[Rfam]
RNA sequence: AGAAUAUAAGAUUUCCAGAGCAUAACACUCCUAAGGAAGAAAUUCUAAGGGAUUAUGCCUGAAUUACAUUGUUAAUUCGCAGGGUAAUAUUCGAAAGGGUAUUAUCUCCACGUUUUUGGGAAGGAAAUAAGUUUUUGAUUUU
Numbered sequence: 001a002g003a004a005u006a007u008a009a010g011a012u013u014u015c016c017a018g019a020g021c022a023u024a025a026c027a028c029u030c031c032u033a034a035g036g037a038a039g040a041a042a043u044u045c046u047a048a049g050g051g052a053u054u055a056u057g058c059c060u061g062a063a064u065u066a067c068a069u070u071g072u073u074a075a076u077u078c079g080c081a082g083g084g085u086a087a088u089a090u091u092c093g094a095a096a097g098g099g100u101a102u103u104a105u106c107u108c109c110a111c112g113u114u115u116u117u118g119g120g121a122a123g124g125a126a127a128u129a130a131g132u133u134u135u136u137g138a139u140u141u142u
Stems, first nucleotide, its partner, number of pairs: 003136002006133001011128006020058006029051003035046004060079007082107011108119002
The record is a 142-nucleotide RNA sequence from Clostridium paraputrificum, which matches "Molybdenum/Tungsten riboswitch aptamer (Moco RNA motif)" in Rfam. NCBI's taxonomy places the organism under Bacteria, Bacillati, Eubacteriales, Clostridiaceae, Clostridium. The literature on the family includes a 2008 paper in Mol Microbiol by Regulski et al., "in molybdenum cofactor and tungsten cofactor metabolism".